Annotation
The record is a 153-nucleotide RNA sequence from Geodermatophilus obscurus, which matches "c-di-AMP riboswitch aptamer (ydaO/yuaA leader)" in Rfam. It scores 69 bits against the family's covariance model.
[Rfam]
RNA sequence: GAGCGGACGCCGCCGAGUCGCCCUCAGGGGCGAGCCGGGGACCCACCGCAGAACUGGGGUGAAUCCCGCUCCUGGACGCACGUCCAGGGGCAGGUAGGGCCGCUUCCCGCCCGAACCCGUCAGCUAACCCGGUAGGCGGCCGUCGGAAGAACG
Numbered sequence: 001g002a003g004c005g006g007a008c009g010c011c012g013c014c015g016a017g018u019c020g021c022c023c024u025c026a027g028g029g030g031c032g033a034g035c036c037g038g039g040g041a042c043c044c045a046c047c048g049c050a051g052a053a054c055u056g057g058g059g060u061g062a063a064u065c066c067c068g069c070u071c072c073u074g075g076a077c078g079c080a081c082g083u084c085c086a087g088g089g090g091c092a093g094g095u096a097g098g099g100c101c102g103c104u105u106c107c108c109g110c111c112c113g114a115a116c117c118c119g120u121c122a123g124c125u126a127a128c129c130c131g132g133u134a135g136g137c138g139g140c141c142g143u144c145g146g147a148a149g150a151a152c153g
Stems, first nucleotide, its partner, number of pairs: 011138004018033005034133006044056002057118003065094002068091010097112004
Dot-bracket structure: ..........((((...(((((......)))))((((((....((.........))(((.....((.((((((((((....)))))))))).))..((((........))))...))).........)))))).))))...............